[Rfam]
RNA sequence: CGCCGGACGCCGCCGAGUCGCAGCCACCCUCCGUGGCCGUGAACCGGGGACCCACCGCACCACUGGGGUGAGUCCCGCCCUCCGAGCCCGGCUCGGGAGGCGGGUAGGGCGCAGAUCCCCGCCCGAACCCGUCAGCUGACCCGGUAGGCGGCCAAGGGAGAAGGA
Numbered sequence: 001c002g003c004c005g006g007a008c009g010c011c012g013c014c015g016a017g018u019c020g021c022a023g024c025c026a027c028c029c030u031c032c033g034u035g036g037c038c039g040u041g042a043a044c045c046g047g048g049g050a051c052c053c054a055c056c057g058c059a060c061c062a063c064u065g066g067g068g069u070g071a072g073u074c075c076c077g078c079c080c081u082c083c084g085a086g087c088c089c090g091g092c093u094c095g096g097g098a099g100g101c102g103g104g105u106a107g108g109g110c111g112c113a114g115a116u117c118c119c120c121g122c123c124c125g126a127a128c129c130c131g132u133c134a135g136c137u138g139a140c141c142c143g144g145u146a147g148g149c150g151g152c153c154a155a156g157g158g159a160g161a162a163g164g165a
Base pairs, nucleotide, nucleotide: 011150012149013148014147018042019041020040043145044144045143046142047141048140053065054064066130067129068128074104075103076102077101078100079099107124108123109122110121
A member of the RNA family "c-di-AMP riboswitch aptamer (ydaO/yuaA leader)" from Geodermatophilus dictyosporus, 165 nucleotides long. It scores 55 bits against the family's covariance model.